[Rfam]
RNA sequence: AGCCUGUGAUGUUUGAGAUUGUCCGUACCAUCUGAGAUGAUUAAUUUUGUCCUUGACGAUAACCUCCACUUUCUGAGGCUU
Numbered sequence: 001a002g003c004c005u006g007u008g009a010u011g012u013u014u015g016a017g018a019u020u021g022u023c024c025g026u027a028c029c030a031u032c033u034g035a036g037a038u039g040a041u042u043a044a045u046u047u048u049g050u051c052c053u054u055g056a057c058g059a060u061a062a063c064c065u066c067c068a069c070u071u072u073c074u075g076a077g078g079c080u081u
Base pairs, nucleotide, nucleotide: 001080002079003078004077
Dot-bracket structure: ((((........................................................................)))).